Rfam assigns this 122-nucleotide RNA sequence from Acyrthosiphon pisum to the family "U4atac minor spliceosomal RNA". It is annotated as a spliceosomal small nuclear RNA. The organism belongs to Acyrthosiphon, within Eukaryota. The base pairs follow the family's consensus structure, which is taken from published work. The match comes from Rfam's covariance-model search (63 bits).
[Rfam]
RNA sequence: GUCAUCCUUGAUCUAGGGGAGCGGCGCGAUCUAUGAUCGUAUAGUGAGCCCGCGCUGCUGACACCCGUACAUGAAUUGCCCGUGCCCAGCGCCUUAGUGUGUUGAGCACAAUUUUUGGACGU
Numbered sequence: 001g002u003c004a005u006c007c008u009u010g011a012u013c014u015a016g017g018g019g020a021g022c023g024g025c026g027c028g029a030u031c032u033a034u035g036a037u038c039g040u041a042u043a044g045u046g047a048g049c050c051c052g053c054g055c056u057g058c059u060g061a062c063a064c065c066c067g068u069a070c071a072u073g074a075a076u077u078g079c080c081c082g083u084g085c086c087c088a089g090c091g092c093c094u095u096a097g098u099g100u101g102u103u104g105a106g107c108a109c110a111a112u113u114u115u116u117g118g119a120c121g122u
Stems, first nucleotide, its partner, number of pairs: 005020005021058008031048001038044001082109004087104006